tRNA: a 74-nucleotide sequence from Grimontia hollisae.
NCBI's taxonomy places the organism under Bacteria, Pseudomonadati, Pseudomonadota, Vibrionaceae, Grimontia hollisae.
RNA sequence: GGGUCUAUAGCUCAGUUGGUUAGAGUACUACCUUGACAUGGUAGGGGUCGGCAGUUCGAGUCUGCCUAGACCCA
Dot-bracket structure: (((((((..((((.........)))).(((((.......))))).....(((((.......)))))))))))).